[Rfam]
RNA sequence: CUUCAGAACAUAACCACGGAUCUGUGUCCAGCACUCCUGUUCAUGGUAUUCCAGUCUGACUGGGAUGUCUGUGUUUCGGUUGAGAGCUGGGCAAUUCGACGAUAAACGGAGCCAUGCACUUUUCAACAUGUGUGGUACCUUGCGGUUUCCGGUCGACAGAUCUCAGAAGAAAGGUCUGCGCUGGGCGAUCUCGGGUCUUGAGCUCCCAUCUUGGUGAGCUCGACUUGAGGGCCUGGUUUGCAGACGGCGUCAUAUUCCUGAUCUCUUUGCCGAAUGGCCGUUGGCCGGUGAGGCUAGGGAAAAACCAUGACUGGCCAACAUAC
Numbered sequence: 001c002u003u004c005a006g007a008a009c010a011u012a013a014c015c016a017c018g019g020a021u022c023u024g025u026g027u028c029c030a031g032c033a034c035u036c037c038u039g040u041u042c043a044u045g046g047u048a049u050u051c052c053a054g055u056c057u058g059a060c061u062g063g064g065a066u067g068u069c070u071g072u073g074u075u076u077c078g079g080u081u082g083a084g085a086g087c088u089g090g091g092c093a094a095u096u097c098g099a100c101g102a103u104a105a106a107c108g109g110a111g112c113c114a115u116g117c118a119c120u121u122u123u124c125a126a127c128a129u130g131u132g133u134g135g136u137a138c139c140u141u142g143c144g145g146u147u148u149c150c151g152g153u154c155g156a157c158a159g160a161u162c163u164c165a166g167a168a169g170a171a172a173g174g175u176c177u178g179c180g181c182u183g184g185g186c187g188a189u190c191u192c193g194g195g196u197c198u199u200g201a202g203c204u205c206c207c208a209u210c211u212u213g214g215u216g217a218g219c220u221c222g223a224c225u226u227g228a229g230g231g232c233c234u235g236g237u238u239u240g241c242a243g244a245c246g247g248c249g250u251c252a253u254a255u256u257c258c259u260g261a262u263c264u265c266u267u268u269g270c271c272g273a274a275u276g277g278c279c280g281u282u283g284g285c286c287g288g289u290g291a292g293g294c295u296a297g298g299g300a301a302a303a304a305c306c307a308u309g310a311c312u313g314g315c316c317a318a319c320a321u322a323c
Stems, first nucleotide, its partner, number of pairs: 018163008026092006034084003037079003042073002045069005051063005100155004108139002111136005174241002180237006194225004200221006206214002246316003249311005262300005269294003276286004